RNA sequence: AAGCAAUAGAAUAGAUUUCUCAAGGGUGGUCGGCACAUCCCCGGGUGAAAGGGGGUGAUGCUGUUGACAGUUUUUCAAGCAUUGAUGUUUGCAAUUGCCUUCGCAAGCUUAAUCGUUGCUGUCCUGUCAUUUAACCAUAAAAAAUAAUCCACCCUUGAGUUUCACCGCUCUGAUGGAUUAUUUCUCACUCUGAGUGCUGACCCCCGUAAAGGGAAUCUGCUAUUGCUUUGCCGUUUCGAUGGUCCAACAUCGGAA
Numbered sequence: 001a002a003g004c005a006a007u008a009g010a011a012u013a014g015a016u017u018u019c020u021c022a023a024g025g026g027u028g029g030u031c032g033g034c035a036c037a038u039c040c041c042c043g044g045g046u047g048a049a050a051g052g053g054g055g056u057g058a059u060g061c062u063g064u065u066g067a068c069a070g071u072u073u074u075u076c077a078a079g080c081a082u083u084g085a086u087g088u089u090u091g092c093a094a095u096u097g098c099c100u101u102c103g104c105a106a107g108c109u110u111a112a113u114c115g116u117u118g119c120u121g122u123c124c125u126g127u128c129a130u131u132u133a134a135c136c137a138u139a140a141a142a143a144a145u146a147a148u149c150c151a152c153c154c155u156u157g158a159g160u161u162u163c164a165c166c167g168c169u170c171u172g173a174u175g176g177a178u179u180a181u182u183u184c185u186c187a188c189u190c191u192g193a194g195u196g197c198u199g200a201c202c203c204c205c206g207u208a209a210a211g212g213g214a215a216u217c218u219g220c221u222a223u224u225g226c227u228u229u230g231c232c233g234u235u236u237c238g239a240u241g242g243u244c245c246a247a248c249a250u251c252g253g254a255a
Stems, first nucleotide, its partner, number of pairs: 001228005007222003011218001017200002019159008028149003036057002039054004066128005079092003103119003169193002202213003234255008
The record is a 255-nucleotide RNA sequence from Bacillus sp. FJAT-50079, which matches "BsrG" in Rfam.
By type it is a small RNA.
Gene Ontology terms of the family: toxin activity and autolysis.
The base pairs follow the family's consensus structure, which was predicted with WAR.
The source organism's lineage runs through Bacteria, Bacillati, Caryophanales, Bacillaceae and Bacillus.
The match comes from Rfam's covariance-model search (106 bits).